[Rfam]
RNA sequence: CAGAAAGAGAGGGAGCUCCCUUCAGUCCAAUCAAAGAGAAUCAAUGAUCCAAUUUGUCUACCGCAUCAUUCAGUCAUUUAACGAGUCUAGUUUGAAUUUGGGUGACUCGGUAUGUGGAUGAAUGAGUCGGAAGCUAAUUGGAUCAUAUCACGACCUGUGAAUGGACUCAAGGAAGCUCUCUCUAUAUAUUUU
Numbered sequence: 001c002a003g004a005a006a007g008a009g010a011g012g013g014a015g016c017u018c019c020c021u022u023c024a025g026u027c028c029a030a031u032c033a034a035a036g037a038g039a040a041u042c043a044a045u046g047a048u049c050c051a052a053u054u055u056g057u058c059u060a061c062c063g064c065a066u067c068a069u070u071c072a073g074u075c076a077u078u079u080a081a082c083g084a085g086u087c088u089a090g091u092u093u094g095a096a097u098u099u100g101g102g103u104g105a106c107u108c109g110g111u112a113u114g115u116g117g118a119u120g121a122a123u124g125a126g127u128c129g130g131a132a133g134c135u136a137a138u139u140g141g142a143u144c145a146u147a148u149c150a151c152g153a154c155c156u157g158u159g160a161a162u163g164g165a166c167u168c169a170a171g172g173a174a175g176c177u178c179u180c181u182c183u184a185u186a187u188a189u190u191u192u
Stems, first nucleotide, its partner, number of pairs: 013178005019172002024167006036155001058133002061130003067124004075116001
RNA: MIR159 microRNA precursor family